[Rfam]
A member of the RNA family "Qrr RNA" from Vibrio nigripulchritudo, 108 nucleotides long. It is annotated as a small RNA. About the family: This family represents a set of small RNAs (the Qrr RNAs) that are thought to be involved in the regulation of quorum sensing in Vibrio species. NCBI's taxonomy places the organism under Bacteria, Pseudomonadati, Pseudomonadota, Vibrionales, Vibrio. Gene Ontology term of the family: quorum sensing. A search with the family's covariance model found it, with a score of 89 bits. The base pairs follow the family's consensus structure, which is taken from published work.
RNA sequence: UGACCCUUUUUAAAGCCGAGGGUCACCUAGCCAACUGACGUUGUUAGUGAACCGAUAUUUGUUCACAAUUGAUUUAGCCACCCGCGUUUUGCGUGUGGCUUUUUUUCG
Numbered sequence: 001u002g003a004c005c006c007u008u009u010u011u012a013a014a015g016c017c018g019a020g021g022g023u024c025a026c027c028u029a030g031c032c033a034a035c036u037g038a039c040g041u042u043g044u045u046a047g048u049g050a051a052c053c054g055a056u057a058u059u060u061g062u063u064c065a066c067a068a069u070u071g072a073u074u075u076a077g078c079c080a081c082c083c084g085c086g087u088u089u090u091g092c093g094u095g096u097g098g099c100u101u102u103u104u105u106u107c108g
Base pairs, nucleotide, nucleotide: 001025002024003023004022005021006020043073044072047066048065049064050063051062052061078098079097080096081095083093084092085091